[Rfam]
RNA sequence: GCUGGGUGUGGCGGCGCGCACCUGUAAUCGAGCUACUUCGAAGCUGAGGUAGUGAACUGCUUGAGGUCGGGGUUCUUACUGGUAGUUAUCCUAUGUCGAUCGAGCGUCCACACUAAGCCUUGUGUCAAUAUGGGCAGUUAGAGGGAGCUCUAAAUGUCCAGGUUGCGUAAUGAGGAAUGAAUCGGCCCAGGGUGGAAACACAGCAGGCAAAAGUUCCCGCAUCAGGCAGUAGUGGGAUAGCGCUCGUGAAUAGGGAGCUUAUUAGUAGCCCGAUCAAGAUAGUAGAACAUUGCUUUUU
Numbered sequence: 001g002c003u004g005g006g007u008g009u010g011g012c013g014g015c016g017c018g019c020a021c022c023u024g025u026a027a028u029c030g031a032g033c034u035a036c037u038u039c040g041a042a043g044c045u046g047a048g049g050u051a052g053u054g055a056a057c058u059g060c061u062u063g064a065g066g067u068c069g070g071g072g073u074u075c076u077u078a079c080u081g082g083u084a085g086u087u088a089u090c091c092u093a094u095g096u097c098g099a100u101c102g103a104g105c106g107u108c109c110a111c112a113c114u115a116a117g118c119c120u121u122g123u124g125u126c127a128a129u130a131u132g133g134g135c136a137g138u139u140a141g142a143g144g145g146a147g148c149u150c151u152a153a154a155u156g157u158c159c160a161g162g163u164u165g166c167g168u169a170a171u172g173a174g175g176a177a178u179g180a181a182u183c184g185g186c187c188c189a190g191g192g193u194g195g196a197a198a199c200a201c202a203g204c205a206g207g208c209a210a211a212a213g214u215u216c217c218c219g220c221a222u223c224a225g226g227c228a229g230u231a232g233u234g235g236g237a238u239a240g241c242g243c244u245c246g247u248g249a250a251u252a253g254g255g256a257g258c259u260u261a262u263u264a265g266u267a268g269c270c271c272g273a274u275c276a277a278g279a280u281a282g283u284a285g286a287a288c289a290u291u292g293c294u295u296u297u298u
Base pairs, nucleotide, nucleotide: 001044002043003042004023005022006021007020008019009018010017028041029040030039046296047295048294049293050292051291052290053289054288057285058284059283060282061281065275066274067273068272069271070270071269076268077267078266079265080264081263082262083261084259085258086257087256090254091253092252093251094250096248101246102245103244104243105242106241107240108236109235111234112233113232114231115230117227118226119225120224122222123221124220125219126165127164128163129162131160132159133158134157135156136155138153139152140151141150142149143148166172167171174217175216176215177214178213185208186207187206192201193200194199